[Rfam]
RNA: tRNA
RNA sequence: GGUCUUAAGGUGAUAUUCAUGUCGAAUUGCAAAUUCGAAGGUGUAGAGAAAUCUCUACUAAGACUU
Numbered sequence: 001g002g003u004c005u006u007a008a009g010g011u012g013a014u015a016u017u018c019a020u021g022u023c024g025a026a027u028u029g030c031a032a033a034u035u036c037g038a039a040g041g042u043g044u045a046g047a048g049a050a051a052u053c054u055c056u057a058c059u060a061a062g063a064c065u066u
Base pairs, nucleotide, nucleotide: 001065002064003063004062005061006060007059010020011019012018013017022038023037024036025035026034043058044057045056046055047054